This 302-nucleotide RNA sequence belongs to the Rfam family "RT-2 RNA".
RNA sequence: UGGGGCCUGAACAAGUAGCGAACUGCGAAGCUGUGCCCCAAACCUUAAAGGAGAACUUGACCCUUGGAGACUGGCCCGCCAUGCGCGGGCUUCAUUCCUUAAAUCACCACUCGAUACGGAGGCCCGGACGCUUCUUGCAUGGCCGGGGAUUUACGGCGGCGUUGCCACGGCUCCAUGAGCAACCGUUAUGCAGCUACUUCAAACCGCUGCGGCAGACGACGCAGGUGCGGGAGGUCAUGCGACCCGCAAACCGCGCGCCAGACCGAACGCUGUACGGGUGGGAUACUGCAUUGGAGGCAACA
Numbered sequence: 001u002g003g004g005g006c007c008u009g010a011a012c013a014a015g016u017a018g019c020g021a022a023c024u025g026c027g028a029a030g031c032u033g034u035g036c037c038c039c040a041a042a043c044c045u046u047a048a049a050g051g052a053g054a055a056c057u058u059g060a061c062c063c064u065u066g067g068a069g070a071c072u073g074g075c076c077c078g079c080c081a082u083g084c085g086c087g088g089g090c091u092u093c094a095u096u097c098c099u100u101a102a103a104u105c106a107c108c109a110c111u112c113g114a115u116a117c118g119g120a121g122g123c124c125c126g127g128a129c130g131c132u133u134c135u136u137g138c139a140u141g142g143c144c145g146g147g148g149a150u151u152u153a154c155g156g157c158g159g160c161g162u163u164g165c166c167a168c169g170g171c172u173c174c175a176u177g178a179g180c181a182a183c184c185g186u187u188a189u190g191c192a193g194c195u196a197c198u199u200c201a202a203a204c205c206g207c208u209g210c211g212g213c214a215g216a217c218g219a220c221g222c223a224g225g226u227g228c229g230g231g232a233g234g235u236c237a238u239g240c241g242a243c244c245c246g247c248a249a250a251c252c253g254c255g256c257g258c259c260a261g262a263c264c265g266a267a268c269g270c271u272g273u274a275c276g277g278g279u280g281g282g283a284u285a286c287u288g289c290a291u292u293g294g295a296g297g298c299a300a301c302a
Stems, first nucleotide, its partner, number of pairs: 004039002019025001075089004107281007115274001116186004122180002125177001130138002141172005147166001190273005
Rfam classes the family as a small RNA.
Pairs were carried over by alignment from the consensus structure, which is taken from published work.